[Rfam]
RNA sequence: ACGGAUGGCCGGAUGACCGCGGGGGGCGCGCAAGCGUCGUGCCGAGGAAAGUCCGGACUCCAUGAAGCAAGGGCGCCGGGUAACUCCCGGCCGGGGUAACCCGAGGGAAAGCGCAACAGAGAAGAGACAGCCGCGCCGCCGGCCUCGGUCGGAGACCGGUGCGGUGAUGGUGAAACGGUGGGGUAAGAGCCCACCGCGGUCCUGGCAACAGGAAUGGCAUGGCAAGCCCCGCCCGGAGCAAUGCCGAAUAGGGGCCUCGCGCGGGGCAGGUCGGGUCCGCCCGAUACCGCCGCAGGGAUGCUUCAGCCCGAGAGGCCCGGGUUGGCAGCUGGAUCCCGUCCGUAAGGGCGGGGGCAGAGGAAUGGUCAUCCAGGGCAGGCAACUGCCUGGACAGAAUCCGGCUUACAGGCCAUCCGUGCAA
Numbered sequence: 001a002c003g004g005a006u007g008g009c010c011g012g013a014u015g016a017c018c019g020c021g022g023g024g025g026g027c028g029c030g031c032a033a034g035c036g037u038c039g040u041g042c043c044g045a046g047g048a049a050a051g052u053c054c055g056g057a058c059u060c061c062a063u064g065a066a067g068c069a070a071g072g073g074c075g076c077c078g079g080g081u082a083a084c085u086c087c088c089g090g091c092c093g094g095g096g097u098a099a100c101c102c103g104a105g106g107g108a109a110a111g112c113g114c115a116a117c118a119g120a121g122a123a124g125a126g127a128c129a130g131c132c133g134c135g136c137c138g139c140c141g142g143c144c145u146c147g148g149u150c151g152g153a154g155a156c157c158g159g160u161g162c163g164g165u166g167a168u169g170g171u172g173a174a175a176c177g178g179u180g181g182g183g184u185a186a187g188a189g190c191c192c193a194c195c196g197c198g199g200u201c202c203u204g205g206c207a208a209c210a211g212g213a214a215u216g217g218c219a220u221g222g223c224a225a226g227c228c229c230c231g232c233c234c235g236g237a238g239c240a241a242u243g244c245c246g247a248a249u250a251g252g253g254g255c256c257u258c259g260c261g262c263g264g265g266g267c268a269g270g271u272c273g274g275g276u277c278c279g280c281c282c283g284a285u286a287c288c289g290c291c292g293c294a295g296g297g298a299u300g301c302u303u304c305a306g307c308c309c310g311a312g313a314g315g316c317c318c319g320g321g322u323u324g325g326c327a328g329c330u331g332g333a334u335c336c337c338g339u340c341c342g343u344a345a346g347g348g349c350g351g352g353g354g355c356a357g358a359g360g361a362a363u364g365g366u367c368a369u370c371c372a373g374g375g376c377a378g379g380c381a382a383c384u385g386c387c388u389g390g391a392c393a394g395a396a397u398c399c400g401g402c403u404u405a406c407a408g409g410c411c412a413u414c415c416g417u418g419c420a421a
Stems, first nucleotide, its partner, number of pairs: 001417010011406001012370007020044003024040001025038004049404003053401005058238004067303001071234005076090005091105001092103004106229002111227002113223002128169002130165009177195006196218001197216002200213005242327004252318006295309003299305001334353008

A member of the RNA family "Bacterial RNase P class A" from Rhodobacter sp. 24-YEA-8, 421 nucleotides long. Rfam describes the family as follows. Ribonuclease P (RNase P) is a ubiquitous endoribonuclease, found in archaea, bacteria and eukarya as well as chloroplasts and mitochondria. Its best characterised activity is the generation of mature 5'-ends of tRNAs by cleaving the 5'-leader elements of precursor-tRNAs. NCBI's taxonomy places the organism under Bacteria, Pseudomonadota, Alphaproteobacteria, Rhodobacterales, Rhodobacter. Rfam links the family to the GO terms ribonuclease P activity, tRNA processing and dimeric ribonuclease P complex. The match comes from Rfam's covariance-model search (267 bits).